[Rfam]
RNA sequence: AUGAACAUGAUUUGGGGAAGGUGAAAACCUUCAGUAAGCUUCGAGUCAAGCAGCGCCAGAUAAGUUGCGCAGCUUGGUCCGAAAGGUGAGGAACAAGCGACGAAUAAUCCUUCUCCCACCAUAA
Numbered sequence: 001a002u003g004a005a006c007a008u009g010a011u012u013u014g015g016g017g018a019a020g021g022u023g024a025a026a027a028c029c030u031u032c033a034g035u036a037a038g039c040u041u042c043g044a045g046u047c048a049a050g051c052a053g054c055g056c057c058a059g060a061u062a063a064g065u066u067g068c069g070c071a072g073c074u075u076g077g078u079c080c081g082a083a084a085g086g087u088g089a090g091g092a093a094c095a096a097g098c099g100a101c102g103a104a105u106a107a108u109c110c111u112u113c114u115c116c117c118a119c120c121a122u123a124a
Stems, first nucleotide, its partner, number of pairs: 015115007022107001032088002035085001040083004062075005